[Rfam]
The family of this 233-nucleotide sequence from Caballeronia sp. SBC1 is "Burkholderia sRNA Bp1_Cand871_SIPHT". The match comes from Rfam's covariance-model search (177 bits). The base pairs follow the family's consensus structure, which was predicted with CMfinder. The family's RNA type in Rfam is small RNA.

RNA sequence: UCGCCCACAAUCACUUCAACGGUCUCAACACGGAUGUGAUCGGGUGCAGCGUUGGUGAACUACAACGUUUUGAGUUGCGCUCGGCGGUCGGCUUAAUGCCGAAUCCCAGUUUCAGGGACAUGUUUGUUGGGGUCGUUGGCUGAUGACAUCAUAUCGGCCAGUCCCACCCUUGGUCUCCUCGCGCUAACCCCGUAGCGUGUGGUUUUUAGCGGGCUCCAGGCCCGCUUUUUUUU
Numbered sequence: 001u002c003g004c005c006c007a008c009a010a011u012c013a014c015u016u017c018a019a020c021g022g023u024c025u026c027a028a029c030a031c032g033g034a035u036g037u038g039a040u041c042g043g044g045u046g047c048a049g050c051g052u053u054g055g056u057g058a059a060c061u062a063c064a065a066c067g068u069u070u071u072g073a074g075u076u077g078c079g080c081u082c083g084g085c086g087g088u089c090g091g092c093u094u095a096a097u098g099c100c101g102a103a104u105c106c107c108a109g110u111u112u113c114a115g116g117g118a119c120a121u122g123u124u125u126g127u128u129g130g131g132g133u134c135g136u137u138g139g140c141u142g143a144u145g146a147c148a149u150c151a152u153a154u155c156g157g158c159c160a161g162u163c164c165c166a167c168c169c170u171u172g173g174u175c176u177c178c179u180c181g182c183g184c185u186a187a188c189c190c191c192g193u194a195g196c197g198u199g200u201g202g203u204u205u206u207u208a209g210c211g212g213g214c215u216c217c218a219g220g221c222c223c224g225c226u227u228u229u230u231u232u233u
Base pairs, nucleotide, nucleotide: 005173006172007171018137019136020135021134022133023132024131025130026129027128028127029126030125032123034121035120036119037118038085040083042080044075045074047072048071049070051066052065053064054063088102089101090100091099092098105117106116107115139158140157141156142155143154177202178201180199181198182197183196184195185194186193208226209225210224211223212222213221214220215219